[Rfam]
RNA sequence: CUUGAUCGACCCGAGCCACAGCGGCCGGUCGUCCCGCUGCUGCCCGUAGGUGGCCAGCAGCGCCUGCGCCUC
Dot-bracket structure: ..............(((.....))).......(.((...(((.(((....))).)))...))...)......
Shown here is a 72-nucleotide RNA sequence from Rhodococcus sp. CX, a member of the family "ASpks TB sRNA". Taxonomically the source falls in Rhodococcus (Bacteria, Actinomycetota, Actinomycetes, Mycobacteriales). It scores 82 bits against the family's covariance model.